[Rfam]
RNA: Small nucleolar RNA SNORA61
RNA sequence: ACCCUCCAGUUCCCUUUCCCAUUGGAUUUGAACCCAGGUCUCAGUGGUUGUAAAAGGAGGAAUAGUAGUCCUGAAGCUGUGCUCAUAGUGUCUGCUAUAUAGCAUGUGGGCUAGUUUAAAACAAGU
Number, nucleotide and partner (000 for none) at each position: 001a000002c000003c060004c059005u058006c057007c056008a000009g000010u000011u000012c000013c000014c000015u000016u000017u000018c000019c047020c046021a045022u044023u043024g000025g040026a039027u038028u037029u000030g000031a000032a000033c000034c000035c000036a000037g028038g027039u026040c025041u000042c000043a023044g022045u021046g020047g019048u000049u000050g000051u000052a000053a000054a000055a000056g007057g006058a005059g004060g003061a000062a000063u000064a000065g000066u000067a000068g000069u000070c000071c000072u000073g000074a000075a000076g000077c114078u113079g112080u000081g111082c110083u109084c108085a000086u104087a000088g000089u000090g000091u000092c000093u000094g000095c000096u000097a000098u000099a000100u000101a000102g000103c000104a086105u000106g000107u000108g084109g083110g082111c081112u079113a078114g077115u000116u000117u000118a000119a000120a000121a000122c000123a000124a000125g000126u000